The family of this 93-nucleotide sequence from Crypturellus undulatus is "Small nucleolar RNA U6-53/MBII-28". For this family Rfam cites "RNomics: an experimental approach that identifies 201 candidates for novel, small, non-messenger RNAs in mouse" (Huttenhofer et al., EMBO J, 2001). Rfam links the family to the GO terms nucleolus and RNA processing. NCBI's taxonomy places the organism under Eukaryota, Metazoa, Deuterostomia, Tetrapoda, Crypturellus. The family's RNA type in Rfam is C/D-box small nucleolar RNA.

RNA sequence: GCCCCGGGAUGACUUUGCCAUGCUAAUACCGACCGGCUCCGUGCGGAGGCCGGGAUGAGUUGCACUCACUUCUCCGUCGAGGAGCUGAGGGCG
Numbered sequence: 001g002c003c004c005c006g007g008g009a010u011g012a013c014u015u016u017g018c019c020a021u022g023c024u025a026a027u028a029c030c031g032a033c034c035g036g037c038u039c040c041g042u043g044c045g046g047a048g049g050c051c052g053g054g055a056u057g058a059g060u061u062g063c064a065c066u067c068a069c070u071u072c073u074c075c076g077u078c079g080a081g082g083a084g085c086u087g088a089g090g091g092c093g
Base pairs, nucleotide, nucleotide: 001092002091003090004089037048038047039046040045